A member of the RNA family "Group I catalytic intron" from Rhodovastum atsumiense, 248 nucleotides long. About the family: Group I catalytic introns are large self-splicing ribozymes. The family's consensus secondary structure is taken from published work. The source organism's lineage runs through Bacteria, Pseudomonadati, Pseudomonadota, Acetobacteraceae and Rhodovastum. Its family is annotated with Group I intron splicing in the Gene Ontology.

[Rfam]
RNA sequence: AUCGGCUGUUAAAUUUUUGACACUUCAGAGGGAGACCUCAGUCGAAAAUCGGGUGAAUUCGGUGGAACCCCACCGUCGCGAGACGAGGGCAACGCCGAGCCAAGCCAGACGAAGGGCAUAAAGGUCGUCUGGAAGGUGUAGAGACUAGGCGGUGAGGAGCCCAUCCAAUAACCCGCCCACGAGCGCCCGACACCCUAACGGUCACGCCGAGGGUGAAGACAUAGUCCGGCACCGCGAGGAAUCGCGGC
Numbered sequence: 001a002u003c004g005g006c007u008g009u010u011a012a013a014u015u016u017u018u019g020a021c022a023c024u025u026c027a028g029a030g031g032g033a034g035a036c037c038u039c040a041g042u043c044g045a046a047a048a049u050c051g052g053g054u055g056a057a058u059u060c061g062g063u064g065g066a067a068c069c070c071c072a073c074c075g076u077c078g079c080g081a082g083a084c085g086a087g088g089g090c091a092a093c094g095c096c097g098a099g100c101c102a103a104g105c106c107a108g109a110c111g112a113a114g115g116g117c118a119u120a121a122a123g124g125u126c127g128u129c130u131g132g133a134a135g136g137u138g139u140a141g142a143g144a145c146u147a148g149g150c151g152g153u154g155a156g157g158a159g160c161c162c163a164u165c166c167a168a169u170a171a172c173c174c175g176c177c178c179a180c181g182a183g184c185g186c187c188c189g190a191c192a193c194c195c196u197a198a199c200g201g202u203c204a205c206g207c208c209g210a211g212g213g214u215g216a217a218g219a220c221a222u223a224g225u226c227c228g229g230c231a232c233c234g235c236g237a238g239g240a241a242u243c244g245c246g247g248c
Base pairs, nucleotide, nucleotide: 005026008023009022013018029038030037031036049190050189051188052187054185055184059098060097061096062095063094064093069089070088071087073085099137100136105131112125141227143226144225145224146223147222193213194212195211196210201205233246234245235244236243237242
Dot-bracket structure: ....(..((...(....)...))..)..(((....)))..........[[[[.[[...((((((....(((.(...........).)))...))))))((....(......(............).....)....))...(.(((((....................................]].]]]]..((((....(...)....))))........)))))).....(((((....)))))..